[Rfam]
The family of this 95-nucleotide RNA sequence from Kingdonia uniflora is "Small nucleolar RNA Z161/Z228". The literature on the family includes a 2003 paper in Nucleic Acids Res by Chen et al., "The high diversity of snoRNAs in plants: identification and comparative study of 120 snoRNA genes from Oryza sativa". Pairs were carried over by alignment from the consensus structure, which was predicted with PFOLD.
RNA sequence: GGGCCAGGUGAUGAAAAUGGAUUUAUAUCUCACGACAGUCAUCUGAGACAUUACGUUGUCAAGGUUGAUACAAAGAUCCGUUCUUUUUGAUGGCU
Numbered sequence: 001g002g003g004c005c006a007g008g009u010g011a012u013g014a015a016a017a018u019g020g021a022u023u024u025a026u027a028u029c030u031c032a033c034g035a036c037a038g039u040c041a042u043c044u045g046a047g048a049c050a051u052u053a054c055g056u057u058g059u060c061a062a063g064g065u066u067g068a069u070a071c072a073a074a075g076a077u078c079c080g081u082u083c084u085u086u087u088u089g090a091u092g093g094c095u
Stems, first nucleotide, its partner, number of pairs: 001095002004092001049058002